[Rfam]
RNA sequence: GAAAUUAUUUUCUAGGGUUCCGCAAGUAGUUUUUUUGCUUGGACUGGUCCGAGAGAAAAUGCACGUGAUUCGUGUACACGGAGGGACAAAAGCCCGGGAGGA
Numbered sequence: 001g002a003a004a005u006u007a008u009u010u011u012c013u014a015g016g017g018u019u020c021c022g023c024a025a026g027u028a029g030u031u032u033u034u035u036u037g038c039u040u041g042g043a044c045u046g047g048u049c050c051g052a053g054a055g056a057a058a059a060u061g062c063a064c065g066u067g068a069u070u071c072g073u074g075u076a077c078a079c080g081g082a083g084g085g086a087c088a089a090a091a092g093c094c095c096g097g098g099a100g101g102a
Base pairs, nucleotide, nucleotide: 007060008059009058010057011056012055015050016049020047021046022044023041024040025039026038027037028036061075062074063073064072065071077097079100083095084094085093
A member of the RNA family "Guanidine-I riboswitch aptamer" from Virgibacillus salexigens, 102 nucleotides long. The organism belongs to Virgibacillus, within Bacteria. It scores 88 bits against the family's covariance model. The literature on the family includes a 2004 paper in Proc Natl Acad Sci U S A by Barrick et al., "New RNA motifs suggest an expanded scope for riboswitches in bacterial genetic control". Pairs were carried over by alignment from the consensus structure.